[Rfam]
Rfam assigns this 218-nucleotide RNA from Furnarius figulus to the family "Small nucleolar RNA SNORA53". Pairs were carried over by alignment from the consensus structure, which was predicted with RNAalifold. Its family is annotated with RNA processing and nucleolus in the Gene Ontology. Rfam describes the family as follows. The snoRNA ACA53 belongs to the H/ACA family of pseudouridylation guide snoRNAs. NCBI's taxonomy places the organism under Eukaryota, Gnathostomata, Saurischia, Coelurosauria, Furnarius. Rfam classes the family as an H/ACA-box small nucleolar RNA.

RNA sequence: CACAUGCCCCUUAGAUCCAUCUUUGUGAGUAUCUUUGUUCUGAGUUCUGCUAGAUAACUUCAGUUUCUAGCAGUUCCAGUCAGAGAUAUUCAGCAACUUUCUGGUUGUACAGUCAAAGAUGCUUGAGUCAUUGGCAUGUGAGAGCAAUAUAACUGCAUGUUAGCUUUCUGUUCUGAUAGAAUUUCUCACUAUCAGGACUUGGCUGGUAUGCAGACAUU
Dot-bracket structure: .(((((((.(((((...((((((((((((((..((((..(((.(..((((..(..(((....))).)..))))..)))).))))..))))))((((((....)))))).....)))))))).))))).....))))))).............(((((..(.((((......((((((((...(....)))))))))....)))).)..))))).....